A member of the RNA family "MIR5272 microRNA precursor family" from Medicago truncatula, 72 nucleotides long. Lineage of the source: Eukaryota > Mesangiospermae > rosids > Hologalegina > Medicago.
RNA sequence: UUUGAUCUGAAUUGAUUUAUGUUUGGAUACACUAAUGUAAGUGAUUCUUAUGAGUUGAUGAUGUUUGGAUAU
Numbered sequence: 001u002u003u004g005a006u007c008u009g010a011a012u013u014g015a016u017u018u019a020u021g022u023u024u025g026g027a028u029a030c031a032c033u034a035a036u037g038u039a040a041g042u043g044a045u046u047c048u049u050a051u052g053a054g055u056u057g058a059u060g061a062u063g064u065u066u067g068g069a070u071a072u
Stems, first nucleotide, its partner, number of pairs: 011059008021051002025047004030043004